[Rfam]
RNA sequence: CCAGUCGGCUGGGCGACCGCUCCCGUCAUACGUCGAAAGACGGCGGGGGAGGAAAGUCCGGGCUCCACGGAGAAGCGGUGCCGGAUAACGUCCGGCGGGGGCGACCCCAGGGAAAGUGCCACAGAAAACAGACCGCCCCGCCUAUAGUGCGGCUCGACCGGCGCGAGUGCCUCGGCAGCGGAGCCGCACUAUUGGCGGGGUAAGGGUGAAACGGUGGGGUAAGAGCCCACCGCGCUUCUGGCAACAGCGGCGGCACGGCAAACCCCACCGGGAGCAAGACCGAAUAGGGACGACGCGGCGGUUCGCCUUCGGGUGACAUCGCCAGCCCUUCUCCGGGCCGGUCGUCCGGGUGGGUUGCUCGAGGCGGUUCGCAAGGACCGUCCCAGAGGAAUGGUCGCCGAGCGGCUUUGCCGCUUACAGAACCCGGCUUACAGGCCGACUGGCUCU
Number, nucleotide and partner (000 for none) at each position: 001c443002c442003a441004g440005u439006c438007g437008g436009c435010u434011g432012g399013g398014c397015g396016a395017c394018c393019g000020c049021u048022c047023c046024c045025g044026u043027c042028a000029u000030a000031c000032g000033u000034c000035g000036a000037a000038a000039g000040a000041c000042g027043g026044c025045g024046g023047g022048g021049g020050a000051g000052g000053a000054a430055a429056g428057u000058c427059c426060g425061g424062g423063c274064u273065c272066c271067a000068c000069g000070g333071a332072g331073a330074a000075g000076c270077g269078g268079u267080g266081c095082c094083g093084g092085a091086u000087a000088a000089c000090g000091u085092c084093c083094g082095g081096c110097g108098g107099g106100g105101g000102c000103g000104a000105c100106c099107c098108c097109a000110g096111g265112g264113a000114a000115a000116g263117u262118g259119c258120c257121a000122c000123a000124g000125a000126a000127a000128a000129c000130a000131g000132a000133c205134c204135g201136c200137c199138c198139c197140g196141c195142c194143u000144a000145u000146a000147g000148u000149g000150c000151g000152g000153c000154u000155c000156g000157a000158c000159c000160g000161g000162c000163g000164c000165g000166a000167g000168u000169g000170c000171c000172u000173c000174g000175g000176c000177a000178g000179c000180g000181g000182a000183g000184c000185c000186g000187c000188a000189c000190u000191a000192u000193u000194g142195g141196c140197g139198g138199g137200g136201u135202a000203a000204g134205g133206g000207u000208g000209a000210a000211a000212c000213g231214g230215u229216g228217g227218g226219g000220u000221a000222a000223g000224a000225g000226c218227c217228c216229a215230c214231c213232g254233c252234g251235c250236u249237u000238c247239u246240g245241g000242c000243a000244a000245c240246a239247g238248c000249g236250g235251c234252g233253g000254c232255a000256c000257g120258g119259c118260a000261a000262a117263c116264c112265c111266c080267a079268c078269c077270g076271g066272g065273a064274g063275c000276a000277a000278g356279a355280c354281c353282g000283a000284a000285u000286a000287g000288g347289g346290a345291c344292g343293a342294c000295g000296c000297g000298g000299c000300g000301g000302u000303u000304c000305g000306c000307c000308u000309u000310c000311g000312g000313g000314u000315g000316a000317c000318a000319u000320c000321g000322c000323c000324a000325g338326c337327c336328c335329u000330u073331c072332u071333c070334c000335g328336g327337g326338c325339c000340g000341g000342u293343c292344g291345u290346c289347c288348g000349g000350g000351u000352g000353g281354g280355u279356u278357g000358c000359u000360c000361g000362a000363g382364g381365c380366g379367g378368u377369u376370c375371g000372c000373a000374a000375g370376g369377a368378c367379c366380g365381u364382c363383c000384c000385a000386g000387a000388g000389g000390a000391a000392u000393g018394g017395u016396c015397g014398c013399c012400g000401a000402g000403c000404g000405g000406c000407u000408u000409u000410g000411c000412c000413g000414c000415u000416u000417a000418c000419a000420g000421a000422a000423c062424c061425c060426g059427g058428c056429u055430u054431a000432c011433a000434g010435g009436c008437c007438g006439a005440c004441u003442g002443g001444c000445u000446c000447u000
RNA: Bacterial RNase P class A